A member of the RNA family "Manganese Mn2+ riboswitch aptamer (yybP-ykoY)" from Leptothrix cholodnii, 175 nucleotides long.
RNA sequence: GCUUUCGUCAUUGGGGAGUAGCCGCCCUGCGCCCGCAGGGGUUCGCGUCAACACACUUGACCCUCACGGUCAUGGCGCGAACAGCUCCAGAGCCUGGCAAGACCUUUGACCACACUGCCUCCGGAAGGGCCGGGGAUGCCGUGUGGUCUCUGGUAUUCGCUGGCCCUUGGAGAUC
Numbered sequence: 001g002c003u004u005u006c007g008u009c010a011u012u013g014g015g016g017a018g019u020a021g022c023c024g025c026c027c028u029g030c031g032c033c034c035g036c037a038g039g040g041g042u043u044c045g046c047g048u049c050a051a052c053a054c055a056c057u058u059g060a061c062c063c064u065c066a067c068g069g070u071c072a073u074g075g076c077g078c079g080a081a082c083a084g085c086u087c088c089a090g091a092g093c094c095u096g097g098c099a100a101g102a103c104c105u106u107u108g109a110c111c112a113c114a115c116u117g118c119c120u121c122c123g124g125a126a127g128g129g130c131c132g133g134g135g136a137u138g139c140c141g142u143g144u145g146g147u148c149u150c151u152g153g154u155a156u157u158c159g160c161u162g163g164c165c166c167u168u169g170g171a172g173a174u175c
Stems, first nucleotide, its partner, number of pairs: 026039003041082010058072005083174001085172005
The base pairs follow the family's consensus structure. This RNA was originally discovered in E. coli during a large scale screen and was named SraF. The family was later found to exist upstream of related families of protein genes in many bacteria, including the the yybP and ykoK genes in B. subtilis. A search with the family's covariance model found it, with a score of 113 bits.